[Rfam]
Nucleotides: 162
Base pairs, nucleotide, nucleotide: 001158002157003156004155009148010147011146016144017143018142023137024136025135026134027133028132029131030130031086032085033084034083035082088106089105090104091103092102112126113125114124115123116122117121
Number, partner (000 for none) and nucleotide at each position: 001158g002157c003156c004155c005000a006000a007000u008000u009148u010147c011146g012000c013000a014000c015000g016144u017143g018142c019000c020000u021000g022000u023137g024136g025135c026134u027133g028132c029131g030130u031086g032085c033084c034083g035082g036000u037000a038000g039000g040000c041000g042000a043000c044000a045000c046000c047000c048000g049000a050000g051000g052000g053000a054000c055000a056000a057000g058000a059000g060000g061000c062000c063000c064000g065000g066000a067000g068000g069000u070000c071000g072000c073000c074000u075000g076000g077000g078000c079000a080000a081000a082035c083034c084033g085032g086031c087000a088106g089105c090104c091103g092102g093000a094000g095000a096000u097000c098000a099000g100000a101000a102092c103091c104090g105089g106088c107000g108000c109000a110000c111000u112126c113125g114124g115123c116122g117121u118000c119000u120000c121117a122116c123115g124114c125113c126112g127000g128000g129000a130030a131029c132028g133027c134026g135025g136024c137023u138000u139000g140000a141000a142018g143017c144016a145000a146011c147010g148009a149000c150000g151000u152000a153000g154000a155004g156003g157002g158001c159000u160000u161000u162000u

Shown here is a 162-nucleotide sequence from Prosthecodimorpha hirschii, a member of the family "Alphaproteobacterial sRNA ar45".
The pairing is the family consensus, mapped onto this sequence.
NCBI's taxonomy places the organism under Bacteria, Pseudomonadati, Pseudomonadota, Alphaproteobacteria, Prosthecodimorpha.
A search with the family's covariance model found it, with a score of 61 bits.